The family of this 328-nucleotide part of an RNA from Paludisphaera borealis is "Bacterial large subunit ribosomal RNA". Clan: LSU clan.
RNA sequence: GAUAAGACGGGUGGGAAGCCCGUCCGCCGAAAGCACAAGGUUUCCUGGGGAAGGUCAAUCCGCCCAGGGUCAGCCGGGACCUAAGACGAGGCCCAAGGGCGUAGUCGAUGGACAGACGGUUAAUAUUCCGUCGCCCGAGCGGGAAGGUUGAACGAGGGAGGACGCCGGGAACAGAGAGGUCGGGGCGCUAGAAACCCCCGUGCCGCAAGGCCGACAGCUUGAUCUGGAAGCCUCUGGAAGUCUCGGCCGCGAAAAGCCCCCUCGGGACGACCCGCCGGCCCGUACCGCAAUCCGACACAGGUGUGCUAGGUGAGCAUCCGAAGGCGUU
Numbered sequence: 001g002a003u004a005a006g007a008c009g010g011g012u013g014g015g016a017a018g019c020c021c022g023u024c025c026g027c028c029g030a031a032a033g034c035a036c037a038a039g040g041u042u043u044c045c046u047g048g049g050g051a052a053g054g055u056c057a058a059u060c061c062g063c064c065c066a067g068g069g070u071c072a073g074c075c076g077g078g079a080c081c082u083a084a085g086a087c088g089a090g091g092c093c094c095a096a097g098g099g100c101g102u103a104g105u106c107g108a109u110g111g112a113c114a115g116a117c118g119g120u121u122a123a124u125a126u127u128c129c130g131u132c133g134c135c136c137g138a139g140c141g142g143g144a145a146g147g148u149u150g151a152a153c154g155a156g157g158g159a160g161g162a163c164g165c166c167g168g169g170a171a172c173a174g175a176g177a178g179g180u181c182g183g184g185g186c187g188c189u190a191g192a193a194a195c196c197c198c199c200g201u202g203c204c205g206c207a208a209g210g211c212c213g214a215c216a217g218c219u220u221g222a223u224c225u226g227g228a229a230g231c232c233u234c235u236g237g238a239a240g241u242c243u244c245g246g247c248c249g250c251g252a253a254a255a256g257c258c259c260c261c262u263c264g265g266g267a268c269g270a271c272c273c274g275c276c277g278g279c280c281c282g283u284a285c286c287g288c289a290a291u292c293c294g295a296c297a298c299a300g301g302u303g304u305g306c307u308a309g310g311u312g313a314g315c316a317u318c319c320g321a322a323g324g325c326g327u328u
Stems, first nucleotide, its partner, number of pairs: 006024006025326004033306004039286002044068006053061002075282004080111002085106003089102001091100003115132005135278003139275005153264001156261003160257001164247004170241001175235005181200005202211002215226003292301002309319002
Dot-bracket structure: .....((((((.......))))))((((....((((..((...((((((...((.....)).))))))......((((.((...(((.(.(((....))).).)))...))...(((((........)))))..(((.(((((.........(..(((.(...((((..(....(((((.(((((..........))))).((......))...(((......)))....))))).....)..)))).........).)))..)......))))))))))))..)).....((......)).))))..((.......))...))))..